[Rfam]
RNA sequence: CAGAUCGAUGGAGAUGGCAUUCUCCUCCAACCGCCGGUGCCGUCCGGCUAAUGAUGCCUGCAGCCGU
Numbered sequence: 001c002a003g004a005u006c007g008a009u010g011g012a013g014a015u016g017g018c019a020u021u022c023u024c025c026u027c028c029a030a031c032c033g034c035c036g037g038u039g040c041c042g043u044c045c046g047g048c049u050a051a052u053g054a055u056g057c058c059u060g061c062a063g064c065c066g067u
Base pairs, nucleotide, nucleotide: 010025011024012023013022016058017057018056019055020054021053033048034047035046036045
The family of this 67-nucleotide RNA from Paraburkholderia caffeinitolerans is "Fluoride riboswitch aptamer (crcB RNA motif)". The match comes from Rfam's covariance-model search (50 bits). Lineage of the source: Bacteria > Betaproteobacteria > Burkholderiales > Burkholderiaceae > Paraburkholderia.